[Rfam]
RNA: Bacteroidete tryptophan peptide leader RNA
RNA sequence: ACAGAAAAACAAAAAUAGAAAUGAGAACUAUAUUAGUAAAUACAUAUUGGUGGUGGCGCCGUUACAACUCCUACAGUCGUAAGGGAGCAGCGCUCGUGUAUACAUACUAGAUAGAUGAUUACAUAAAAUAAGAAAGAGCCCUGUC
Numbered sequence: 001a002c003a004g005a006a007a008a009a010c011a012a013a014a015a016u017a018g019a020a021a022u023g024a025g026a027a028c029u030a031u032a033u034u035a036g037u038a039a040a041u042a043c044a045u046a047u048u049g050g051u052g053g054u055g056g057c058g059c060c061g062u063u064a065c066a067a068c069u070c071c072u073a074c075a076g077u078c079g080u081a082a083g084g085g086a087g088c089a090g091c092g093c094u095c096g097u098g099u100a101u102a103c104a105u106a107c108u109a110g111a112u113a114g115a116u117g118a119u120u121a122c123a124u125a126a127a128a129u130a131a132g133a134a135a136g137a138g139c140c141c142u143g144u145c
Stems, first nucleotide, its partner, number of pairs: 036107003041102002044099004049094004056088002059085002065079001067077003